[Rfam]
RNA sequence: GUCCAAGCUGAUUCCUUCUCCAAGGGGCUAACUAAUGCCCUUCUUAGGAACAUAGCAACUUGGAAGAAAAUCUGGCCUCCCUAAGGUUUUUGGAGAGCAAGGGAUGCAUACUUCCUUUGCCUCACUUUGGCUGCCUACAUGC
Dot-bracket structure: .((((((.((........(((.((((((........))))))....)))......)).))))))..........(..((.....(......(.((................)).).......).....)).)..........
A member of the RNA family "Small nucleolar RNA SNORA67" from Nannospalax galili, 142 nucleotides long. By type it is an H/ACA-box small nucleolar RNA. Rfam links the family to the GO terms RNA processing and nucleolus.